The record is a 78-nucleotide RNA from Haemonchus placei, which matches "mir-5890 microRNA precursor family" in Rfam. It scores 98 bits against the family's covariance model. Pairs were carried over by alignment from the consensus structure, which was predicted with RNAalifold. Its family is annotated with miRNA-mediated post-transcriptional gene silencing and RISC complex in the Gene Ontology. NCBI's taxonomy places the organism under Eukaryota, Bilateria, Ecdysozoa, Chromadorea, Haemonchus.
RNA sequence: UUGAUGCGGCAGCAUAAGACUGAAUUGAGGGAGGACUUAUAUGAUUCUACCCCUUUUCAUUUUUGUGCUGCUUUGGAG
Number, nucleotide and partner (000 for none) at each position: 001u000002u000003g000004a000005u000006g000007c000008g072009g071010c070011a069012g068013c067014a066015u065016a064017a063018g062019a061020c000021u059022g058023a057024a056025u000026u000027g053028a000029g052030g051031g050032a048033g047034g046035a045036c043037u000038u000039a000040u000041a000042u000043g036044a000045u035046u034047c033048u032049a000050c031051c030052c029053c027054u000055u000056u024057u023058c022059a021060u000061u019062u018063u017064u016065g015066u014067g013068c012069u011070g010071c009072u008073u000074u000075g000076g000077a000078g000